[Rfam]
RNA sequence: AUCAAAGGUGAUUCCCUCCCCAAGGGGUCUAUUAGUGCGUUUUUCAGGAACAUAGCAACUUGGAAUGCAAUCUGGCAUGGCUAAGCUAUUCAAGGGACAGGGGAUACUUAUUUAUUUUGCCUCUUUUUGGCUGCCUACAUGU
Numbered sequence: 001a002u003c004a005a006a007g008g009u010g011a012u013u014c015c016c017u018c019c020c021c022a023a024g025g026g027g028u029c030u031a032u033u034a035g036u037g038c039g040u041u042u043u044u045c046a047g048g049a050a051c052a053u054a055g056c057a058a059c060u061u062g063g064a065a066u067g068c069a070a071u072c073u074g075g076c077a078u079g080g081c082u083a084a085g086c087u088a089u090u091c092a093a094g095g096g097a098c099a100g101g102g103g104a105u106a107c108u109u110a111u112u113u114a115u116u117u118u119g120c121c122u123c124u125u126u127u128u129g130g131c132u133g134c135c136u137a138c139a140u141g142u
Base pairs, nucleotide, nucleotide: 002064003063005061006060007059009057010056020048021047022043023042024041025040027038028037075132078130080128083125084124085123092115094113095112096111
This 142-nucleotide RNA sequence from Microcebus murinus belongs to the Rfam family "Small nucleolar RNA SNORA67". Rfam links the family to the GO terms nucleolus and RNA processing. NCBI's taxonomy places the organism under Eukaryota, Eumetazoa, Mammalia, Euarchontoglires, Microcebus. U67 belongs to the H/ACA class of snoRNAs which are thought to guide the sites of modification of uridines to pseudouridines. Rfam classes the family as an H/ACA-box small nucleolar RNA.